[Rfam]
RNA sequence: UCGCAAGCUCAAGGGCAUAGCAGAAGCACCCACUGCGCGGCCUGGCAGAUUCCAAUGAAAUCUGUGAAUUCUGCU
Numbered sequence: 001u002c003g004c005a006a007g008c009u010c011a012a013g014g015g016c017a018u019a020g021c022a023g024a025a026g027c028a029c030c031c032a033c034u035g036c037g038c039g040g041c042c043u044g045g046c047a048g049a050u051u052c053c054a055a056u057g058a059a060a061u062c063u064g065u066g067a068a069u070u071c072u073g074c075u
Stems, first nucleotide, its partner, number of pairs: 013042002015038002019075007026036003046064006
Mammalian CPEB3 ribozyme: a 75-nucleotide sequence from Crocodylus porosus. Rfam links the family to the GO term RNA nuclease activity. The mammalian CPEB3 ribozyme is a self cleaving RNA located in the second intron of the CPEB3 gene which belongs to a family of genes regulating messenger RNA polyadenylation. Taxonomically the source falls in Crocodylus (Eukaryota, Chordata, Sarcopterygii, Longirostres). A search with the family's covariance model found it, with a score of 38 bits. The family's consensus secondary structure is taken from published work.